[Rfam]
RNA sequence: ACGUUGCAUGAAGAGAGGGCAGACGCCCCGCCAACCUGCCUGACACGGCAAGGUGGUUUCCUUGAAAAAGGCAUGAGACCAUAGUGUAAACACAGUGUCCAUG
Numbered sequence: 001a002c003g004u005u006g007c008a009u010g011a012a013g014a015g016a017g018g019g020c021a022g023a024c025g026c027c028c029c030g031c032c033a034a035c036c037u038g039c040c041u042g043a044c045a046c047g048g049c050a051a052g053g054u055g056g057u058u059u060c061c062u063u064g065a066a067a068a069a070g071g072c073a074u075g076a077g078a079c080c081a082u083a084g085u086g087u088a089a090a091c092a093c094a095g096u097g098u099c100c101a102u103g
Base pairs, nucleotide, nucleotide: 007075008074009073010072015029017028018027019026020025030057031056032055035053036052037051038049039048040047042099043098044097045096046095078087079086
Dot-bracket structure: ......((((....(.((((....)))))(((..((((((.[[[[[))).))).)))..............))))..((......)).......]]]]]....